[Rfam]
RNA sequence: CGAGGUGCCCUCUCGAGCGAAGCGAUAGAAGCGUGAGAACUCCUAUCUUUCCAGCUCAGAGGGCACUCCCUAUCUCCGGGAUCCCCACCGAUCAGACAUUCAUCGGUGGAUCGAG
Dot-bracket structure: .(.(((((((((..((.((.(..(((.(.((........)).).)))..).).).)).))))))))).)...........................((((((....))))).)..
Numbered sequence: 001c002g003a004g005g006u007g008c009c010c011u012c013u014c015g016a017g018c019g020a021a022g023c024g025a026u027a028g029a030a031g032c033g034u035g036a037g038a039a040c041u042c043c044u045a046u047c048u049u050u051c052c053a054g055c056u057c058a059g060a061g062g063g064c065a066c067u068c069c070c071u072a073u074c075u076c077c078g079g080g081a082u083c084c085c086c087a088c089c090g091a092u093c094a095g096a097c098a099u100u101c102a103u104c105g106g107u108g109g110a111u112c113g114a115g
Stems, first nucleotide, its partner, number of pairs: 002069001004067009015057002018054001019052001021050001024047003028043001030041002097113001098111005